Rfam assigns this 81-nucleotide sequence from Bombyx mori to the family "mir-2807 microRNA precursor family".
[Rfam]
RNA sequence: UUUACUGAAAUUUGUAUGGAGUUGGAAAGUUUGCUUACGUUUGCCGCUAGGGGCGCUGUUCCAACUGCAUACUUUGAGGUG
Numbered sequence: 001u002u003u004a005c006u007g008a009a010a011u012u013u014g015u016a017u018g019g020a021g022u023u024g025g026a027a028a029g030u031u032u033g034c035u036u037a038c039g040u041u042u043g044c045c046g047c048u049a050g051g052g053g054c055g056c057u058g059u060u061c062c063a064a065c066u067g068c069a070u071a072c073u074u075u076g077a078g079g080u081g
Stems, first nucleotide, its partner, number of pairs: 008075003014072003018068001020066008029057001034052003039047002

The family has 8 seed sequences and 5,120 matches in Rfam 15.1.